[Rfam]
Small nucleolar RNA SNORA48: a 145-nucleotide RNA sequence from Camelus dromedarius. Rfam 15.1 lists 2,109 matches to the family in 150 species. On this family, see Ofengand and Bakin, J Mol Biol 1997: "Mapping to nucleotide resolution of pseudouridine residues in large subunit ribosomal RNAs from representative eukaryotes, prokaryotes, archaebacteria, mitochondria and chloroplasts". The snoRNA ACA 48 has been identified to guide pseudouridylation of the residue U3797 in the 28S rRNA subunit. The match comes from Rfam's covariance-model search (56 bits). Its Rfam clan is "SNORA48 clan". By type it is an H/ACA-box small nucleolar RNA.
RNA sequence: ACCCCCUGGCGAUGGGCAAAGAGACACCUGAUUGGCGGUGCUGCUCUUCUGUCAGUCAGGGGCAAAGUGGGUGUCUAGCCCUUUUUCCAUCUUAGCUUGAUGCUUGGGUUGGUGGCCAGAGUUGUUUCAUGCCUGGGGGUCCGGG
Numbered sequence: 001a002c003c004c005c006c007u008g009g010c011g012a013u014g015g016g017c018a019a020a021g022a023g024a025c026a027c028c029u030g031a032u033u034g035g036c037g038g039u040g041c042u043g044c045u046c047u048u049c050u051g052u053c054a055g056u057c058a059g060g061g062g063c064a065a066a067g068u069g070g071g072u073g074u075c076u077a078g079c080c081c082u083u084u085u086u087c088c089a090u091c092u093u094a095g096c097u098u099g100a101u102g103c104u105u106g107g108g109u110u111g112g113u114g115g116c117c118a119g120a121g122u123u124g125u126u127u128c129a130u131g132c133c134u135g136g137g138g139g140u141c142c143g144g145g
Base pairs, nucleotide, nucleotide: 003062004061005060006059007058008057013054014053015052019048020047021046023042025040026039027038028037085139086138087137088136099133101131105129106128107127110124111123113121